RNA: c-di-GMP-I riboswitch aptamer
RNA sequence: UCCGACAAAGGGCAAACUUGCCGAAAGGUAAGGACGCAAAGCCGAGGGUCUAAAGUGCGAGAGCAUUAUGACAGUCUGGCUGCCGUA
Numbered sequence: 001u002c003c004g005a006c007a008a009a010g011g012g013c014a015a016a017c018u019u020g021c022c023g024a025a026a027g028g029u030a031a032g033g034a035c036g037c038a039a040a041g042c043c044g045a046g047g048g049u050c051u052a053a054a055g056u057g058c059g060a061g062a063g064c065a066u067u068a069u070g071a072c073a074g075u076c077u078g079g080c081u082g083c084c085g086u087a
Base pairs, nucleotide, nucleotide: 012037013036017032018031019030020029021028022027040081041080042079043078045077046076047075048072049071050070055066056065057064058063